HIV-1 stem-loop 4 packaging signal: a 20-nucleotide sequence from Acanthaster planci. By type it is a cis-regulatory element. The base pairs follow the family's consensus structure, which is taken from published work. A search with the family's covariance model found it, with a score of 31 bits. The literature on the family includes a 2008 paper in Proc Natl Acad Sci U S A by Yu et al., "MS3D structural elucidation of the HIV-1 packaging signal".
[Rfam]
RNA sequence: UGGGUGCGAGUGCGUCAAUA
Dot-bracket structure: ..(((((....)))))....
Numbered sequence: 001u002g003g004g005u006g007c008g009a010g011u012g013c014g015u016c017a018a019u020a
Stems, first nucleotide, its partner, number of pairs: 003016005